This 303-nucleotide RNA sequence from Coffea arabica belongs to the Rfam family "Plant signal recognition particle RNA". Rfam classes the family as a non-coding RNA gene. The organism belongs to Coffea, within Eukaryota. It scores 256 bits against the family's covariance model. Rfam 15.1 lists 4,988 matches to the family in 266 species. The family's consensus secondary structure is taken from published work.

[Rfam]
RNA sequence: GCCGAGCUUGGUAGCGCAAGCUUGUGACCCAAGCGGGGGCUUUAAUGUGUUGGAACAUUGGAUUGGCCCAGAUGGUUGGCCUUGUGGAGCUACUCACCGGCCUGCCCAUUCCAAGCGGAGAGCUGAGCCAUGUGGUUUGGGCGGAGGCCUGGAUCACUUGGCUCCUAAAGCGGAGGAUACUGCGUGAGGCUGGCUUGACAGAGCAACGAGAACUUCCCGCUCCUUGCAGUGGAAGGAUAACGGGCUAGUGCUGCACAAGGCCACUACUACCAAAUGGGUCAUCCUAAUUGAACCAACACUUUU
Numbered sequence: 001g002c003c004g005a006g007c008u009u010g011g012u013a014g015c016g017c018a019a020g021c022u023u024g025u026g027a028c029c030c031a032a033g034c035g036g037g038g039g040c041u042u043u044a045a046u047g048u049g050u051u052g053g054a055a056c057a058u059u060g061g062a063u064u065g066g067c068c069c070a071g072a073u074g075g076u077u078g079g080c081c082u083u084g085u086g087g088a089g090c091u092a093c094u095c096a097c098c099g100g101c102c103u104g105c106c107c108a109u110u111c112c113a114a115g116c117g118g119a120g121a122g123c124u125g126a127g128c129c130a131u132g133u134g135g136u137u138u139g140g141g142c143g144g145a146g147g148c149c150u151g152g153a154u155c156a157c158u159u160g161g162c163u164c165c166u167a168a169a170g171c172g173g174a175g176g177a178u179a180c181u182g183c184g185u186g187a188g189g190c191u192g193g194c195u196u197g198a199c200a201g202a203g204c205a206a207c208g209a210g211a212a213c214u215u216c217c218c219g220c221u222c223c224u225u226g227c228a229g230u231g232g233a234a235g236g237a238u239a240a241c242g243g244g245c246u247a248g249u250g251c252u253g254c255a256c257a258a259g260g261c262c263a264c265u266a267c268u269a270c271c272a273a274a275u276g277g278g279u280c281a282u283c284c285u286a287a288u289u290g291a292a293c294c295a296a297c298a299c300u301u302u303u
Stems, first nucleotide, its partner, number of pairs: 001040003004023007028037003044302002047299007056290002058287003061283003065279001068277003073272004078262008088252002091250002097248001099246006106236002109234005115227004120222004125164006132157011165170001172217005181210001183208003190201003